[Rfam]
RNA sequence: GGAGGUGUCCGAGACCUGGUGGGCUCCACCGCCUUCAAAGCGGUUGGCCGUGGCGAACCCACGGCGGCGGGUUCGAUUCCCGUCCACCUCC
Numbered sequence: 001g002g003a004g005g006u007g008u009c010c011g012a013g014a015c016c017u018g019g020u021g022g023g024c025u026c027c028a029c030c031g032c033c034u035u036c037a038a039a040g041c042g043g044u045u046g047g048c049c050g051u052g053g054c055g056a057a058c059c060c061a062c063g064g065c066g067g068c069g070g071g072u073u074c075g076a077u078u079c080c081c082g083u084c085c086a087c088c089u090c091c
Base pairs, nucleotide, nucleotide: 001091002090003089004088005087006086007085011026012025013024015022016021028044029043030042031041032040047065048064049063050062051061068082069081070080071079
RNA: Selenocysteine transfer RNA